[Rfam]
Annotation
A member of the RNA family "c-di-AMP riboswitch aptamer (ydaO/yuaA leader)" from Actinoplanes derwentensis, 141 nucleotides long.
RNA sequence: GGUCGCGGAUCUACGAAUCAAGGCAUGGAGCGGGGGACCCAAGAGUUCCUCGGCGCUACGGCGCCUCGGGGUGAAGCCGUGGUAAGCGGCCGGGCACCUCUGCCCGAACCCGACAGCUGACCUCGCAGGCGUGGAGGACAA
Numbered sequence: 001g002g003u004c005g006c007g008g009a010u011c012u013a014c015g016a017a018u019c020a021a022g023g024c025a026u027g028g029a030g031c032g033g034g035g036g037a038c039c040c041a042a043g044a045g046u047u048c049c050u051c052g053g054c055g056c057u058a059c060g061g062c063g064c065c066u067c068g069g070g071g072u073g074a075a076g077c078c079g080u081g082g083u084a085a086g087c088g089g090c091c092g093g094g095c096a097c098c099u100c101u102g103c104c105c106g107a108a109c110c111c112g113a114c115a116g117c118u119g120a121c122c123u124c125g126c127a128g129g130c131g132u133g134g135a136g137g138a139c140a141a
Stems, first nucleotide, its partner, number of pairs: 011131001014128001018029002030126006040068001069111003077089004092105004
NCBI's taxonomy places the organism under Bacteria, Bacillati, Micromonosporales, Micromonosporaceae, Actinoplanes. The pairing is the family consensus, mapped onto this sequence.